[Rfam]
RNA sequence: CUAAUUAAGCAGGGGUAGCAAAUUCGCUUGAGAAAAACCCUUCGAACCUGAUCUAGUUGACACUAGCGUAGGAAGUCUUAAUAUUUUUUAGA
Numbered sequence: 001c002u003a004a005u006u007a008a009g010c011a012g013g014g015g016u017a018g019c020a021a022a023u024u025c026g027c028u029u030g031a032g033a034a035a036a037a038c039c040c041u042u043c044g045a046a047c048c049u050g051a052u053c054u055a056g057u058u059g060a061c062a063c064u065a066g067c068g069u070a071g072g073a074a075g076u077c078u079u080a081a082u083a084u085u086u087u088u089u090a091g092a
Base pairs, nucleotide, nucleotide: 006080007079008078009077011041012040013039014038016035017028018027019026047072048071049070050069053066054065055064056063
Dot-bracket structure: .....((((.((((.((((......)))......)..)))).....((((..((((......))))..))))....))))............